Background:
The family of this 128-nucleotide RNA sequence from Myotis brandtii is "Small nucleolar RNA SNORA33". Rfam describes the family as follows. ACA33 is a member of the H/ACA class of snoRNA that guide the sites of modification of uridines to pseudouridines.

RNA sequence: AAUCCAAGAUAUGCAUUAGCAUAAAGUAUCUGACAACAGAAGUCUUCACAAUUCUUGGCAAUAGUAAACCCAUGUUUUGAGCCUUAAAGACACUGAAGUCAUUAAGGUCCCUGAAAAUGGUUAUGAGG
Numbered sequence: 001a002a003u004c005c006a007a008g009a010u011a012u013g014c015a016u017u018a019g020c021a022u023a024a025a026g027u028a029u030c031u032g033a034c035a036a037c038a039g040a041a042g043u044c045u046u047c048a049c050a051a052u053u054c055u056u057g058g059c060a061a062u063a064g065u066a067a068a069c070c071c072a073u074g075u076u077u078u079g080a081g082c083c084u085u086a087a088a089g090a091c092a093c094u095g096a097a098g099u100c101a102u103u104a105a106g107g108u109c110c111c112u113g114a115a116a117a118u119g120g121u122u123a124u125g126a127g128g
Stems, first nucleotide, its partner, number of pairs: 001056002010040001012038002070120003081108007089100003
A search with the family's covariance model found it, with a score of 75 bits. Rfam 15.1 lists 1,176 matches to the family in 522 species.